[Rfam]
RNA sequence: GGAAACCUGAGAAAGGCUGUCCCUAGUACGAGAGGACCGGGACGGACGUAGCUCUCGUGUGCCAGUUGUCCUGCCAAGGGCACGGCUGGUUAGCGACCUACGGAAGGGAUAAGCGCUGAAAGCAUAUAAGCGCGAAGCUCUUUUCAAGAUGAGGUUUCCCACAGGGUUAACCUGGUAAGGCCCGUGAGAGACGAUCACGUUGAUAGGCCGGAGGUGUAAGCACAGUAAUGUGUUCAGCCGACCGGUACUAAUCGGCCGAGG
Numbered sequence: 001g002g003a004a005a006c007c008u009g010a011g012a013a014a015g016g017c018u019g020u021c022c023c024u025a026g027u028a029c030g031a032g033a034g035g036a037c038c039g040g041g042a043c044g045g046a047c048g049u050a051g052c053u054c055u056c057g058u059g060u061g062c063c064a065g066u067u068g069u070c071c072u073g074c075c076a077a078g079g080g081c082a083c084g085g086c087u088g089g090u091u092a093g094c095g096a097c098c099u100a101c102g103g104a105a106g107g108g109a110u111a112a113g114c115g116c117u118g119a120a121a122g123c124a125u126a127u128a129a130g131c132g133c134g135a136a137g138c139u140c141u142u143u144u145c146a147a148g149a150u151g152a153g154g155u156u157u158c159c160c161a162c163a164g165g166g167u168u169a170a171c172c173u174g175g176u177a178a179g180g181c182c183c184g185u186g187a188g189a190g191a192c193g194a195u196c197a198c199g200u201u202g203a204u205a206g207g208c209c210g211g212a213g214g215u216g217u218a219a220g221c222a223c224a225g226u227a228a229u230g231u232g233u234u235c236a237g238c239c240g241a242c243c244g245g246u247a248c249u250a251a252u253c254g255g256c257c258g259a260g261g
Stems, first nucleotide, its partner, number of pairs: 001159008011145004017045007047102005055096003062089005067082006106140003113133005162174003176259001179257004183199005204250003207246005213239002220233005
The record is a 261-nucleotide part of an RNA from Ferrimicrobium acidiphilum, which matches "Bacterial large subunit ribosomal RNA" in Rfam. The base pairs follow the family's consensus structure, which is taken from published work. Rfam 15.1 lists 51,934 matches to the family in 10,816 species. A reference for the family is Yusupov et al. (2001), "Crystal structure of the ribosome at 5.5 A resolution", Science.